[Rfam]
RNA sequence: UGGAGAGGUAGAGGCGCGGUUUGUAAAGAGUACCCCGGUGAGUCCAGCGGUGGAUGAUGAGCUGAAGGGGAAAGGGACAACCGCCGAAGUCUGAAAGUGGCCGUUUCAUUUUCAGGCUGGGUCCGAACAGAACAUGUUCGGAACUGCCGUCAAACCGUGUCGAGGUUUGAUGGAGAGCUAUCCGAGUA
Numbered sequence: 001u002g003g004a005g006a007g008g009u010a011g012a013g014g015c016g017c018g019g020u021u022u023g024u025a026a027a028g029a030g031u032a033c034c035c036c037g038g039u040g041a042g043u044c045c046a047g048c049g050g051u052g053g054a055u056g057a058u059g060a061g062c063u064g065a066a067g068g069g070g071a072a073a074g075g076g077a078c079a080a081c082c083g084c085c086g087a088a089g090u091c092u093g094a095a096a097g098u099g100g101c102c103g104u105u106u107c108a109u110u111u112u113c114a115g116g117c118u119g120g121g122u123c124c125g126a127a128c129a130g131a132a133c134a135u136g137u138u139c140g141g142a143a144c145u146g147c148c149g150u151c152a153a154a155c156c157g158u159g160u161c162g163a164g165g166u167u168u169g170a171u172g173g174a175g176a177g178c179u180a181u182c183c184g185a186g187u188a
Base pairs, nucleotide, nucleotide: 007182008181009180010179011178016084017083018082019081020080021079023078024077033069034068035067036064037063038062039061088118089117090116091115092114093113094112095111096110097109098108099107119145120144122142123141124140125139126138127137128136129135147173148172149171150170151169152168153167154166155165156164
RNA: Lysine riboswitch aptamer